[Rfam]
RNA sequence: UGGGGGCACCGCGACUGGCGAGGGUGGGGUACCACCGGGGAGCGGGUUCUGAAGAGUGGCGUCGUCCGCCUGGGCGCCUUCG
Numbered sequence: 001u002g003g004g005g006g007c008a009c010c011g012c013g014a015c016u017g018g019c020g021a022g023g024g025u026g027g028g029g030u031a032c033c034a035c036c037g038g039g040g041a042g043c044g045g046g047u048u049c050u051g052a053a054g055a056g057u058g059g060c061g062u063c064g065u066c067c068g069c070c071u072g073g074g075c076g077c078c079u080u081c082g
Stems, first nucleotide, its partner, number of pairs: 004050003009045004015039002017070004024035004059077005
Dot-bracket structure: ...(((..((((..(([[[[...((((....))))..))..))))..)))........(((((...]]]]..))))).....
RNA: ZMP/ZTP riboswitch aptamer (pfl RNA motif)